[Rfam]
RNA sequence: AGUGCUGUUGGGGGAUGAAGCCUUUGAGUGAUCCAUCGGCAGAGCAUGACAUUGCUGUGCUGACACUCAUGCUGCUGACAACAGACU
Numbered sequence: 001a002g003u004g005c006u007g008u009u010g011g012g013g014g015a016u017g018a019a020g021c022c023u024u025u026g027a028g029u030g031a032u033c034c035a036u037c038g039g040c041a042g043a044g045c046a047u048g049a050c051a052u053u054g055c056u057g058u059g060c061u062g063a064c065a066c067u068c069a070u071g072c073u074g075c076u077g078a079c080a081a082c083a084g085a086c087u
Stems, first nucleotide, its partner, number of pairs: 002086002005084005010076002013034004018029001036063005044055003